[Rfam]
RNA: Metazoan signal recognition particle RNA
RNA sequence: ACCGGGAACUGUGGCGUGUUCUUGUAAUCCAGCUGCUUUGGAGGUCGAGGCUGUUGGACGGCUUGAGGUUGGGAGUUCUAUCCUUAGUUGCUCUAUGUCGAUCCGGCGUCCGCGCUAAGCACUGUGUCGAUAUGGUGGAACUGGGGGAGCCUGGAUCCACCAGGUCGCUUGAUGAGGAAUGAACCAGCCCAGGGCGGAAACGCAGCAGGCGAAAGUUCCCGCAUAGUGCAGUAGUGGGAUAGCGCCAGUGAAUAGGUGGUUAUGGAUAGCCCAUUCAAAAUAGUCGAACUCAGCCUUUU
Numbered sequence: 001a002c003c004g005g006g007a008a009c010u011g012u013g014g015c016g017u018g019u020u021c022u023u024g025u026a027a028u029c030c031a032g033c034u035g036c037u038u039u040g041g042a043g044g045u046c047g048a049g050g051c052u053g054u055u056g057g058a059c060g061g062c063u064u065g066a067g068g069u070u071g072g073g074a075g076u077u078c079u080a081u082c083c084u085u086a087g088u089u090g091c092u093c094u095a096u097g098u099c100g101a102u103c104c105g106g107c108g109u110c111c112g113c114g115c116u117a118a119g120c121a122c123u124g125u126g127u128c129g130a131u132a133u134g135g136u137g138g139a140a141c142u143g144g145g146g147g148a149g150c151c152u153g154g155a156u157c158c159a160c161c162a163g164g165u166c167g168c169u170u171g172a173u174g175a176g177g178a179a180u181g182a183a184c185c186a187g188c189c190c191a192g193g194g195c196g197g198a199a200a201c202g203c204a205g206c207a208g209g210c211g212a213a214a215g216u217u218c219c220c221g222c223a224u225a226g227u228g229c230a231g232u233a234g235u236g237g238g239a240u241a242g243c244g245c246c247a248g249u250g251a252a253u254a255g256g257u258g259g260u261u262a263u264g265g266a267u268a269g270c271c272c273a274u275u276c277a278a279a280a281u282a283g284u285c286g287a288a289c290u291c292a293g294c295c296u297u298u299u
Base pairs, nucleotide, nucleotide: 001045002044003043004023005022006021007020008019009018028042029041030040047297048296049295050294051293052292053291059286060285061284062283063282067276068275070273071272072271073270078269079268080267081266082265083264085262086261087260088259089258090257092256093255094254095253096252098250103248105246106245107244108243109242110238111237113236114235115234116233117232119229120228121227122226123225124224125223126222127221128167129166130165131164133162134161135160136159137158138157139156141154142153143152144151145150168174176219177218178217179216180215187210188209189208194203195202196201